[Rfam]
RNA: Small nucleolar RNA SNORA12
Organism: Vicugna pacos
RNA sequence: AGUUGUGGUAGUUUUCUUUCUGGCCCAUUUGUUAAGUUUUCAGAUGGGCCUGACUCUGCCACAUAUAUCAUUAUAGGAGCUGGCAAAGGCUUGAUGACAGAGAGAUCUCUUCCUAGCCUUUCCCAUAUCAGAGAUGGGCUCCCACAUGU
Numbered sequence: 001a002g003u004u005g006u007g008g009u010a011g012u013u014u015u016c017u018u019u020c021u022g023g024c025c026c027a028u029u030u031g032u033u034a035a036g037u038u039u040u041c042a043g044a045u046g047g048g049c050c051u052g053a054c055u056c057u058g059c060c061a062c063a064u065a066u067a068u069c070a071u072u073a074u075a076g077g078a079g080c081u082g083g084c085a086a087a088g089g090c091u092u093g094a095u096g097a098c099a100g101a102g103a104g105a106u107c108u109c110u111u112c113c114u115a116g117c118c119u120u121u122c123c124c125a126u127a128u129c130a131g132a133g134a135u136g137g138g139c140u141c142c143c144a145c146a147u148g149u
Base pairs, nucleotide, nucleotide: 005062006061007060008059009058010057011056022050023049024048026046027045028044029043030042031041076142077141078140079139080138081137082091083090084089108134109133110132111131